The family of this 234-nucleotide sequence from an Alicyclobacillaceae bacterium is "Bacterial large signal recognition particle RNA". Clan: SRP clan. The family's RNA type in Rfam is non-coding RNA gene. From the family's description: The signal recognition particle (SRP) is a universally conserved ribonucleoprotein involved in the co-translational targeting of proteins to membranes. The base pairs follow the family's consensus structure, which is taken from published work.

[Rfam]
Nucleotides: 234
Stems, first nucleotide, its partner, number of pairs: 008045001010043002015033008052234002055231002059228003063224001065223003069219003074214001078212002085209006093203002095200001097198001098196009107184006113175001116173005122165003126161001132157003140149003
Number, partner (000 for none) and nucleotide at each position: 001000c002000u003000c004000c005000g006000c007000c008045a009000u010043c011042a012000c013000g014000g015033a016032c017031g018030g019029g020028c021027g022026a023000a024000g025000u026022u027021u028020g029019c030018c031017c032016g033015u034000c035000u036000u037000g038000u039000c040000c041000c042011u043010g044000c045008u046000u047000c048000u049000u050000u051000u052234u053233u054000a055231c056230g057000a058000a059228a060227a061226g062000c063224a064000u065223g066222a067221g068000u069219g070218u071217c072000u073000a074214a075000g076000c077000c078212g079211c080000a081000u082000u083000u084000u085209u086208u087207c088206a089205c090204c091000a092000a093203a094202g095200g096000c097198u098196g099195a100194g101193c102192c103191g104190g105189g106188u107184c108183c109182u110181a111180c112179g113175c114000g115000a116173c117172g118171g119170a120169a121000a122165c123164u124163c125000a126161c127000g128000a129000a130000c131000c132157g133156u134155g135000u136000c137000a138000g139000g140149u141148c142147c143000u144000g145000a146000c147142g148141g149140a150000a151000g152000c153000a154000u155134c156133a157132c158000u159000a160000a161126g162000g163124g164123a165122g166000a167000c168000c169120u170119u171118c172117u173116g174000g175113g176000u177000g178000a179112u180111g181110u182109a183108g184107g185000g186000g187000u188106a189105c190104c191103u192102g193101g194100u195099u196098c197000g198097g199000c200095u201000u202094u203093u204090g205089g206088u207087g208086a209085a210000a211079g212078c213000a214074u215000g216000u217071g218070g219069c220000u221067c222066u223065u224063u225000u226061u227060u228059u229000g230056c231055g232000c233053a234052g